[Rfam]
RNA sequence: CUGACAGAAGAGAGUGAGCACAUACAAAACAAUUGUAUAAAAGGUAUGCAGUUGCCGGUGCGUGCUCACUCUCUUUCUGUCAG
Numbered sequence: 001c002u003g004a005c006a007g008a009a010g011a012g013a014g015u016g017a018g019c020a021c022a023u024a025c026a027a028a029a030c031a032a033u034u035g036u037a038u039a040a041a042a043g044g045u046a047u048g049c050a051g052u053u054g055c056c057g058g059u060g061c062g063u064g065c066u067c068a069c070u071c072u073c074u075u076u077c078u079g080u081c082a083g
Stems, first nucleotide, its partner, number of pairs: 001083009010073012023060003
mir-156 microRNA precursor family: an 83-nucleotide RNA from Tetracentron sinense. The literature on the family includes a 2002 paper in Genes Dev by Reinhart et al., "MicroRNAs in plants". From the family's description: This family represents the plant microRNA (miRNA) precursor mir-156. The family's consensus secondary structure was predicted with PFOLD.